[Rfam]
RNA: mir-3688 microRNA precursor family
Organism: Homo sapiens
RNA sequence: UCACUUUCAAGAGUGGCAAAGUCUUUCCAUAUGUAUGUAUGUAUGUCUGUUACACAUAUGGAAAGACUUUGCCACUCUUUAAAGUGA
Dot-bracket structure: (((((((.((((((((((((((((((((((((((...................)))))))))))))))))))))))))).)))))))